[Rfam]
RNA sequence: UAGCUGGCAUCAAAUUUUGAGCUAGACUAGAUCUCAGUGUUUUGAAAAAUUUAAAUUGUCCGGCAUCUGUAAAGAGCUGGAACGGAGG
Numbered sequence: 001u002a003g004c005u006g007g008c009a010u011c012a013a014a015u016u017u018u019g020a021g022c023u024a025g026a027c028u029a030g031a032u033c034u035c036a037g038u039g040u041u042u043u044g045a046a047a048a049a050u051u052u053a054a055a056u057u058g059u060c061c062g063g064c065a066u067c068u069g070u071a072a073a074g075a076g077c078u079g080g081a082a083c084g085g086a087g088g
Base pairs, nucleotide, nucleotide: 001029002028003027004025005024006023007022008021010020011019057084058083059082060080061079062078063077064076066075067074068073
Dot-bracket structure: ((((((((.((.......))))))).)))...........................((((((((.(((....)))))))).)))....
A member of the RNA family "pan motif" from Alkaliphilus sp. B6464, 88 nucleotides long. It is annotated as a cis-regulatory element. The match comes from Rfam's covariance-model search (44 bits). Lineage of the source: Bacteria > Bacillati > Bacillota > Natronincolaceae > Alkaliphilus. Pairs were carried over by alignment from the consensus structure, which is taken from published work.